[Rfam]
RNA sequence: GUCUCCGCAAGGAGACGGCGCGAAAGGGCGGGAGGCCAACGCUCGACCGAAGGAACACAAAUGGGCAGUGAGGCCGGAUGUCGGGGGCGAGUGUGCUAGCGAACACGAAGCCCAAGAGCCACUGGCGACAUUCGGUAGCGCCCAGAGGCGCGAGCGGAUAGAACAGACA
Numbered sequence: 001g002u003c004u005c006c007g008c009a010a011g012g013a014g015a016c017g018g019c020g021c022g023a024a025a026g027g028g029c030g031g032g033a034g035g036c037c038a039a040c041g042c043u044c045g046a047c048c049g050a051a052g053g054a055a056c057a058c059a060a061a062u063g064g065g066c067a068g069u070g071a072g073g074c075c076g077g078a079u080g081u082c083g084g085g086g087g088c089g090a091g092u093g094u095g096c097u098a099g100c101g102a103a104c105a106c107g108a109a110g111c112c113c114a115a116g117a118g119c120c121a122c123u124g125g126c127g128a129c130a131u132u133c134g135g136u137a138g139c140g141c142c143c144a145g146a147g148g149c150g151c152g153a154g155c156g157g158a159u160a161g162a163a164c165a166g167a168c169a
Stems, first nucleotide, its partner, number of pairs: 001016006030168001036161001040156006047148002062144005073136003077132007085113004091106004